[Rfam]
RNA sequence: UGUCUGUUAUCUUUGGUUAUCUAGCUGUAUGAGUGACGUACAAUCUUCAUAAAGCUAGAUAACCGAAAGUAACAAGAA
Numbered sequence: 001u002g003u004c005u006g007u008u009a010u011c012u013u014u015g016g017u018u019a020u021c022u023a024g025c026u027g028u029a030u031g032a033g034u035g036a037c038g039u040a041c042a043a044u045c046u047u048c049a050u051a052a053a054g055c056u057a058g059a060u061a062a063c064c065g066a067a068a069g070u071a072a073c074a075a076g077a078a
Stems, first nucleotide, its partner, number of pairs: 001078001003076001005074001007072004012067015028051006
Record summary
Rfam assigns this 78-nucleotide RNA from Takifugu rubripes to the family "mir-9/mir-79 microRNA precursor family". The family's consensus secondary structure was predicted with RNAalifold. The family has 214 seed sequences and 5,647 matches in Rfam 15.1.